[Rfam]
RNA sequence: ACGACCUUACUUGAACAGGAUCUGUUCUAUAGGCUCGUACCGUUGCAUCCUUUACCGAAAAGGAGGCAAGCACUCAAGUCUGGUUGAUGAGACUAUGACCUCUGGGCCAGAGCGUGAUUAACGGCCUCGGUGCUCUGGAUCGGAGCCAUCCGACGGCUGUAGAUGAUCGUUCCUGCCUGGUUUCACCGCCAGAGCAGGGUGGCUUCACCGCCAGAGCAGGGUGGCUUAGAGGUUGUCUGACAGACC
Number, nucleotide and partner (000 for none) at each position: 001a038002c037003g035004a000005c033006c032007u031008u000009a000010c000011u000012u000013g027014a026015a025016c024017a023018g022019g000020a000021u000022c018023u017024g016025u015026u014027c013028u000029a000030u000031a007032g006033g005034c000035u003036c000037g002038u001039a000040c000041c000042g000043u069044u068045g067046c066047a000048u064049c063050c062051u061052u060053u059054a000055c000056c000057g000058a000059a053060a052061a051062g050063g049064a048065g000066g046067c045068a044069a043070g000071c000072a000073c000074u000075c000076a000077a000078g245079u244080c243081u242082g241083g000084u000085u000086g000087a000088u000089g000090a000091g000092a000093c000094u000095a000096u000097g000098a233099c232100c231101u230102c229103u228104g227105g226106g225107c224108c223109a222110g000111a171112g170113c169114g168115u000116g000117a000118u000119u000120a000121a160122c159123g158124g157125c156126c155127u153128c152129g151130g150131u000132g000133c000134u145135c000136u143137g000138g000139a000140u000141c000142g000143g136144a000145g134146c000147c000148a000149u000150c130151c129152g128153a127154c000155g126156g125157c124158u123159g122160u121161a000162g000163a000164u000165g000166a000167u000168c114169g113170u112171u111172c220173c219174u218175g217176c216177c214178u213179g212180g211181u000182u000183u000184c000185a000186c000187c000188g000189c000190c000191a000192g000193a000194g000195c000196a000197g000198g000199g000200u000201g000202g000203c000204u000205u000206c000207a000208c000209c000210g000211c180212c179213a178214g177215a000216g176217c175218a174219g173220g172221g000222u109223g108224g107225c106226u105227u104228a103229g102230a101231g100232g099233u098234u000235g000236u000237c000238u000239g000240a000241c082242a081243g080244a079245c078246c000
RNA: Plant small nucleolar RNA U3